[Rfam]
A member of the RNA family "BsrC" from Halalkalibacter nanhaiisediminis, 86 nucleotides long. By type it is a small RNA. The 301 nucleotide sequence from Kouji Nakamura has been trimmed to a highly conserved ~85 nucleotide long core to form this family. Rfam 15.1 lists 572 matches to the family in 553 species. The source organism's lineage runs through Bacteria, Bacillota, Bacilli, Caryophanales and Halalkalibacter.
RNA sequence: CAAUCUCCAAACAAUGAAAGCCCUACCUCUCGUUCAUCCUUGCGGCUCCUUGGCCGCGCCAGGUGAAUGAAAAGUGCUAUUCACUA
Numbered sequence: 001c002a003a004u005c006u007c008c009a010a011a012c013a014a015u016g017a018a019a020g021c022c023c024u025a026c027c028u029c030u031c032g033u034u035c036a037u038c039c040u041u042g043c044g045g046c047u048c049c050u051u052g053g054c055c056g057c058g059c060c061a062g063g064u065g066a067a068u069g070a071a072a073a074g075u076g077c078u079a080u081u082c083a084c085u086a
Stems, first nucleotide, its partner, number of pairs: 034066003039062002041058007